The record is an 89-nucleotide sequence, which matches "GA-cis RNA" in Rfam. It is one of the family's seed sequences. The base pairs follow the family's consensus structure, which is taken from published work.
[Rfam]
RNA sequence: UAGAGGAGAACACCGUCACGAACGACGUGAGUGAUUUAGGAUGGGUUCGACGAACUGCCGCCGAGCGAAUGCGAGGGGCGAUACCUUGA
Number, nucleotide and partner (000 for none) at each position: 001u000002a000003g000004a000005g000006g000007a000008g048009a047010a046011c045012a000013c043014c000015g000016u000017c033018a032019c031020g000021a000022a028023c000024g000025a000026c000027g000028u022029g000030a000031g019032u018033g017034a000035u000036u000037u000038a000039g000040g000041a000042u000043g013044g000045g011046u010047u009048c008049g000050a000051c000052g000053a000054a000055c000056u000057g079058c078059c077060g000061c076062c075063g000064a000065g072066c071067g000068a000069a000070u000071g066072c065073g000074a000075g062076g061077g059078g058079c057080g000081a000082u000083a000084c000085c000086u000087u000088g000089a000